[Rfam]
RNA sequence: AAUUCGGCAAAUUGGCCCCGUAUCUUUGGUAUGAGGGGUGCCUAGUCCCUUGGCUAAGCCAAGAAGAUUAGGUCACAGUGACAAG
Dot-bracket structure: ..............(((((....(....).....)))))((((((((..................))))))))(...).......
Archaeal large subunit ribosomal RNA: an 85-nucleotide part of an RNA from a Candidatus Aenigmatarchaeota archaeon. The base pairs follow the family's consensus structure, which is taken from published work. The source organism's lineage runs through Archaea, Nanobdellati and Candidatus Aenigmatarchaeota. Its family is annotated with structural constituent of ribosome and ribosome in the Gene Ontology.